Background:
This 121-nucleotide RNA sequence from Bacillus mycoides belongs to the Rfam family "Ribosomal protein L20 leader". For this family Rfam cites "Diverse mechanisms for regulating ribosomal protein synthesis in Escherichia coli" (Zengel and Lindahl, Prog Nucleic Acid Res Mol Biol, 1994). Lineage of the source: Bacteria > Bacillati > Bacilli > Caryophanales > Bacillus mycoides. From the family's description: This family is a putative r-protein leader autoregulatory structure found in B. subtilis and other low-GC Gram-positive bacteria. Pairs were carried over by alignment from the consensus structure, which was predicted with CMfinder.
RNA sequence: UUUGACAAGUAGAAGCACCCGCUUCUCACCUGAUGGACGCAUUCGCAGUUAGCAGGUAAAUGUAUUUCUUACUAAAGAUAUUACAAGUGUGGGUGCCGUGUGCCCGCACUUUUUUUGUUCG
Numbered sequence: 001u002u003u004g005a006c007a008a009g010u011a012g013a014a015g016c017a018c019c020c021g022c023u024u025c026u027c028a029c030c031u032g033a034u035g036g037a038c039g040c041a042u043u044c045g046c047a048g049u050u051a052g053c054a055g056g057u058a059a060a061u062g063u064a065u066u067u068c069u070u071a072c073u074a075a076a077g078a079u080a081u082u083a084c085a086a087g088u089g090u091g092g093g094u095g096c097c098g099u100g101u102g103c104c105c106g107c108a109c110u111u112u113u114u115u116u117g118u119u120c121g
Stems, first nucleotide, its partner, number of pairs: 011026006028057003036050003039046002088108009